[Rfam]
RNA: Small nucleolar RNA SNORD23
RNA sequence: UGCCCAGUGAUGAUACCCAUCCUUGCUCCCCGUGCCUCCCAGGGGCUGUGGGCGACACCAUGGCUGCCCCCAGGACAGGCUGGUUGGGCUAUUGGCCUGGGGGCUGAGGGCA
Numbered sequence: 001u002g003c004c005c006a007g008u009g010a011u012g013a014u015a016c017c018c019a020u021c022c023u024u025g026c027u028c029c030c031c032g033u034g035c036c037u038c039c040c041a042g043g044g045g046c047u048g049u050g051g052g053c054g055a056c057a058c059c060a061u062g063g064c065u066g067c068c069c070c071c072a073g074g075a076c077a078g079g080c081u082g083g084u085u086g087g088g089c090u091a092u093u094g095g096c097c098u099g100g101g102g103g104c105u106g107a108g109g110g111c112a
Base pairs, nucleotide, nucleotide: 001112002111003110004109005108